[Rfam]
A member of the RNA family "SmY spliceosomal RNA" from Caenorhabditis auriculariae, 79 nucleotides long. A search with the family's covariance model found it, with a score of 59 bits. It is annotated as a spliceosomal small nuclear RNA. Pairs were carried over by alignment from the consensus structure, which is taken from published work. The organism belongs to Caenorhabditis, within Eukaryota. For this family Rfam cites "A novel family of C. elegans snRNPs contains proteins associated with trans-splicing" (MacMorris et al., RNA, 2007).
RNA sequence: GAAAAUGUAUCGAUAUUUUCAGGGCCUUUCAUAAGACCCCAACGAUAAUUUUUGGGACCUUUACUUUUUAGCAAAGGUA
Numbered sequence: 001g002a003a004a005a006u007g008u009a010u011c012g013a014u015a016u017u018u019u020c021a022g023g024g025c026c027u028u029u030c031a032u033a034a035g036a037c038c039c040c041a042a043c044g045a046u047a048a049u050u051u052u053u054g055g056g057a058c059c060u061u062u063a064c065u066u067u068u069u070a071g072c073a074a075a076g077g078u079a
Stems, first nucleotide, its partner, number of pairs: 022039003026035003057078006064071002